[Rfam]
RNA sequence: UCUCUGGAGAGUGCUUUAGGCCACCCACGGGGAAUACCUUCAAAUAAUAGGUUAAACUCUCAGGUACAAGGACAGAGA
Numbered sequence: 001u002c003u004c005u006g007g008a009g010a011g012u013g014c015u016u017u018a019g020g021c022c023a024c025c026c027a028c029g030g031g032g033a034a035u036a037c038c039u040u041c042a043a044a045u046a047a048u049a050g051g052u053u054a055a056a057c058u059c060u061c062a063g064g065u066a067c068a069a070g071g072a073c074a075g076a077g078a
Stems, first nucleotide, its partner, number of pairs: 001078006013021003023065003027060001030059003036052004